[Rfam]
RNA sequence: GUCAGAGUAGGCGUCACGCGUUAAGUGCCGGCGGAUGGGAAGUCGCCGCCGGACGAAAAGCCGGAAACGAAGGAUCGGCUUGCGGUGUGGCGCCGCGUCCGCUGCC
Numbered sequence: 001g002u003c004a005g006a007g008u009a010g011g012c013g014u015c016a017c018g019c020g021u022u023a024a025g026u027g028c029c030g031g032c033g034g035a036u037g038g039g040a041a042g043u044c045g046c047c048g049c050c051g052g053a054c055g056a057a058a059a060g061c062c063g064g065a066a067a068c069g070a071a072g073g074a075u076c077g078g079c080u081u082g083c084g085g086u087g088u089g090g091c092g093c094c095g096c097g098u099c100c101g102c103u104g105c106c
Stems, first nucleotide, its partner, number of pairs: 001106001003104003010094009019084003025054002028052007038100003042096001058081007

Annotation: This 106-nucleotide sequence from Anaeromassilibacillus sp. An200 belongs to the Rfam family "THF (Tetrahydrofolate) riboswitch aptamer". The source organism's lineage runs through Bacteria, Bacillota, Clostridia, Eubacteriales and Anaeromassilibacillus. Rfam 15.1 lists 747 matches to the family in 747 species.